[Rfam]
RNA sequence: CUGGGUUAGACUAGGGGUCUAACUGUCAUGGUACUCUGCCACAGCGAAGGACGAGGGAAUGGCUCUUUGGACUCAUUCCAUCACUAUCAAUAAGGUGACGAUGUUCUGUCCGUGCCAACAGCGGUGUGGCCAAUCUGGCUCUACAGGAAUGGAGAGCAAGUUGGGUCCUAAUUAGCGGGGAACCGGUUGAGGCAGGAUGACUGAGCAAAUCAUACUCGCAGCACUGUAGGAUGGACGGAUGGCAGAACUGAGCAUGAGUUAGUGGUGGGUGAAAUCCAAGGGUUGGACUUGAGUUUUU
Number, nucleotide and partner (000 for none) at each position: 001c044002u043003g042004g024005g023006u022007u021008a020009g019010a018011c017012u000013a000014g000015g000016g000017g011018u010019c009020u008021a007022a006023c005024u004025g000026u000027c000028a000029u041030g040031g039032u000033a000034c000035u000036c000037u000038g000039c031040c030041a029042c003043a002044g001045c000046g000047a000048a296049g295050g294051a000052c000053g000054a290055g289056g288057g000058a000059a000060u285061g284062g283063c282064u281065c280066u000067u279068u278069g277070g276071a000072c000073u000074c000075a275076u274077u273078c000079c271080a270081u269082c268083a000084c000085u267086a266087u265088c264089a263090a000091u261092a260093a259094g000095g000096u256097g000098a000099c000100g000101a000102u000103g248104u247105u246106c245107u244108g243109u242110c238111c237112g000113u000114g000115c234116c233117a232118a000119c229120a000121g227122c226123g225124g224125u223126g222127u221128g167129g166130c165131c164132a000133a162134u000135c160136u159137g000138g157139c156140u155141c154142u153143a000144c151145a150146g000147g000148a000149a000150u145151g144152g000153a142154g141155a140156g139157c138158a000159a136160g135161u000162u133163g000164g131165g130166u129167c128168c000169u000170a000171a000172u000173u000174a000175g219176c218177g217178g216179g215180g000181a000182a000183c000184c000185g211186g210187u209188u208189g000190a000191g000192g000193c203194a202195g201196g000197a000198u000199g000200a000201c195202u194203g193204a000205g000206c000207a000208a188209a187210u186211c185212a000213u000214a000215c179216u178217c177218g176219c175220a000221g127222c126223a125224c124225u123226g122227u121228a000229g119230g000231a000232u117233g116234g115235a000236c000237g111238g110239a000240u000241g000242g109243c108244a107245g106246a105247a104248c103249u000250g000251a000252g000253c000254a000255u000256g096257a000258g000259u093260u092261a091262g000263u089264g088265g087266u086267g085268g082269g081270u080271g079272a000273a077274a076275u075276c070277c069278a068279a067280g065281g064282g063283u062284u061285g060286g000287a000288c056289u055290u054291g000292a000293g000294u050295u049296u048297u000298u000
Metazoan signal recognition particle RNA: a 298-nucleotide sequence from Naegleria fowleri. Clan: SRP clan. NCBI's taxonomy places the organism under Eukaryota, Tetramitia, Acrasida, Naegleriidae, Naegleria. Rfam classes the family as a non-coding RNA gene. From the family's description: The signal recognition particle (SRP) is a universally conserved ribonucleoprotein.